[Rfam]
RNA sequence: GCGGACCUACGGGGCCGCGCAAACUUUCGGCCCGAAUAUUUCGGUGUCGAACACAAAACGGAAGACAGAAA
Numbered sequence: 001g002c003g004g005a006c007c008u009a010c011g012g013g014g015c016c017g018c019g020c021a022a023a024c025u026u027u028c029g030g031c032c033c034g035a036a037u038a039u040u041u042c043g044g045u046g047u048c049g050a051a052c053a054c055a056a057a058a059c060g061g062a063a064g065a066c067a068g069a070a071a
Base pairs, nucleotide, nucleotide: 001018002017003016004015006014007013008012027050028049029048030047031046033044
The record is a 71-nucleotide RNA sequence from Paramylibacter kogurei, which matches "L2-Alphaproteobacteria ribosomal protein leader" in Rfam. NCBI's taxonomy places the organism under Bacteria, Pseudomonadota, Rhodobacterales, Paracoccaceae, Paramylibacter. A reference for the family is Eckert and Weinberg (2020), "Discovery of 20 novel ribosomal leader candidates in bacteria and archaea", BMC Microbiol. The family's RNA type in Rfam is cis-regulatory leader.